[Rfam]
RNA sequence: AGCUCGACCGGAUCGCAGUUGCGGGUCACCACGAGGUAGUCGCGGAUCGCGAUGCCGUGCCGGUUCUC
Numbered sequence: 001a002g003c004u005c006g007a008c009c010g011g012a013u014c015g016c017a018g019u020u021g022c023g024g025g026u027c028a029c030c031a032c033g034a035g036g037u038a039g040u041c042g043c044g045g046a047u048c049g050c051g052a053u054g055c056c057g058u059g060c061c062g063g064u065u066c067u068c
Base pairs, nucleotide, nucleotide: 004063005062006061008059011030013028015027035056036055037054038053040052041051042050043049044048
Dot-bracket structure: ...(((.(..(.(.(...........)).)....((((.(((((...)))))))))..).))).....
Source information: The record is a 68-nucleotide RNA from Mycolicibacterium sarraceniae, which matches "ASdes TB sRNA" in Rfam. It scores 70 bits against the family's covariance model. By type it is a small RNA. The source organism's lineage runs through Bacteria, Actinomycetota, Mycobacteriales, Mycobacterium and Mycobacterium (subgen. Mycolicibacterium).